[Rfam]
RNA sequence: UGGAUGCGGACCCUGCCGGCACCACGGAUGCAGCUGCCCUGCUGCACCCGUGACGUCUUGGUCAACGAGAAGUCGCUAUUUCUACGCUCAGUGCUCAGAACAUUGGGCACCUAGAAUGGUUUUUGUAGCCGACAGUA
Numbered sequence: 001u002g003g004a005u006g007c008g009g010a011c012c013c014u015g016c017c018g019g020c021a022c023c024a025c026g027g028a029u030g031c032a033g034c035u036g037c038c039c040u041g042c043u044g045c046a047c048c049c050g051u052g053a054c055g056u057c058u059u060g061g062u063c064a065a066c067g068a069g070a071a072g073u074c075g076c077u078a079u080u081u082c083u084a085c086g087c088u089c090a091g092u093g094c095u096c097a098g099a100a101c102a103u104u105g106g107g108c109a110c111c112u113a114g115a116a117u118g119g120u121u122u123u124u125g126u127a128g129c130c131g132a133c134a135g136u137a
Stems, first nucleotide, its partner, number of pairs: 003063003008058003024051004075129002082119003087114002092109006
Record summary
The record is a 137-nucleotide sequence from Camelus dromedarius, which matches "Small nucleolar RNA SNORA43" in Rfam. The base pairs follow the family's consensus structure, which was predicted with RNAfold. Lineage of the source: Eukaryota > Bilateria > Deuterostomia > Artiodactyla > Camelus. About the family: ACA43 is a member of the H/ACA class of snoRNA that guide the sites of modification of uridines to pseudouridines. The family's RNA type in Rfam is H/ACA-box small nucleolar RNA.